[Rfam]
RNA sequence: AAACCUUUUAAAAGCAGUCCAGAGAGGCUGACAAAGGUGGAAACUUUCUAUUGAACCAUUAUGUUGUUCGAUAGGUUGUCUAGCCCUCUUUGUAGCUUCUUGCUAUAAAGAGGGUUUUUAU
Numbered sequence: 001a002a003a004c005c006u007u008u009u010a011a012a013a014g015c016a017g018u019c020c021a022g023a024g025a026g027g028c029u030g031a032c033a034a035a036g037g038u039g040g041a042a043a044c045u046u047u048c049u050a051u052u053g054a055a056c057c058a059u060u061a062u063g064u065u066g067u068u069c070g071a072u073a074g075g076u077u078g079u080c081u082a083g084c085c086c087u088c089u090u091u092g093u094a095g096c097u098u099c100u101u102g103c104u105a106u107a108a109a110g111a112g113g114g115u116u117u118u119u120a121u
Stems, first nucleotide, its partner, number of pairs: 003038006015030005043079002047075010082116014
The family of this 121-nucleotide RNA from Heyndrickxia oleronia is "PyrR binding site". It is annotated as a cis-regulatory element. About the family: This family represents the PyrR binding site and terminator structure. This RNA structure is found upstream of a variety of genes involved in pyrimidine biosynthesis and transport. On this family, see Bonner et al., Nucleic Acids Res 2001: "Molecular recognition of pyr mRNA by the Bacillus subtilis attenuation regulatory protein PyrR". Its family is annotated with pyrimidine nucleobase biosynthetic process and pyrimidine nucleobase transport in the Gene Ontology. Pairs were carried over by alignment from the consensus structure, which is taken from published work.